[Rfam]
RNA sequence: ACGCCCCUGCCGGGAGCGGGCCAAGGGGGCCGGGAAUCCCUGCGUCACCGCGUGCGCUGCCGGAUGAUCGUGAGAACCGAGGCACUAUG
Number, nucleotide and partner (000 for none) at each position: 001a000002c000003g083004c082005c081006c000007c000008u000009g000010c063011c062012g061013g060014g000015a058016g057017c056018g055019g000020g053021c052022c000023a000024a000025g049026g048027g045028g000029g043030c042031c000032g040033g039034g000035a000036a000037u000038c000039c033040c032041u000042g030043c029044g000045u027046c000047a000048c026049c025050g000051c000052g021053u020054g000055c018056g017057c016058u015059g000060c013061c012062g011063g010064a000065u079066g078067a000068u000069c000070g000071u000072g000073a000074g000075a000076a000077c000078c066079g065080a000081g005082g004083c003084a000085c000086u000087a000088u000089g000
RNA: dauA ncRNA motif
Organism: Streptomyces flaveus